[Rfam]
RNA: c-di-GMP-I riboswitch aptamer
RNA sequence: AACGAUAAUUAGCAACAAAUUGAAAGAUUGGGCCGCAAAGCAAUGGGUCUAAAUCGAGCGAUUUCGAUAUGACAGCCGGGCUGCCGAA
Numbered sequence: 001a002a003c004g005a006u007a008a009u010u011a012g013c014a015a016c017a018a019a020u021u022g023a024a025a026g027a028u029u030g031g032g033c034c035g036c037a038a039a040g041c042a043a044u045g046g047g048u049c050u051a052a053a054u055c056g057a058g059c060g061a062u063u064u065c066g067a068u069a070u071g072a073c074a075g076c077c078g079g080g081c082u083g084c085c086g087a088a
Stems, first nucleotide, its partner, number of pairs: 012036002016031001018029004039082003044078003047073003054067004